[Rfam]
The record is an 81-nucleotide RNA from Rubrobacter tropicus, which matches "c-di-GMP-I-GGC riboswitch aptamer" in Rfam. The match comes from Rfam's covariance-model search (68 bits). For this family Rfam cites "Bioinformatic analysis of riboswitch structures uncovers variant classes with altered ligand specificity" (Weinberg et al., Proc Natl Acad Sci U S A, 2017). The family is grouped with related families in Rfam's "c-di-GMP_I riboswitch clan". Taxonomically the source falls in Rubrobacter (Bacteria, Actinomycetota, Rubrobacteria, Rubrobacterales).
RNA sequence: CCUGGAAAAGGUAAACCCGCCGCGAGGCGGGGGCACAAAGCCACGGACCUCACUCACGGGGAGGCAGCCGGGCCGCCGAAG
Numbered sequence: 001c002c003u004g005g006a007a008a009a010g011g012u013a014a015a016c017c018c019g020c021c022g023c024g025a026g027g028c029g030g031g032g033g034c035a036c037a038a039a040g041c042c043a044c045g046g047a048c049c050u051c052a053c054u055c056a057c058g059g060g061g062a063g064g065c066a067g068c069c070g071g072g073c074c075g076c077c078g079a080a081g
Base pairs, nucleotide, nucleotide: 001081003078004077011036012035016031017030018029019028020027021026034067040073041072042071044070045069046068048064049063050062051061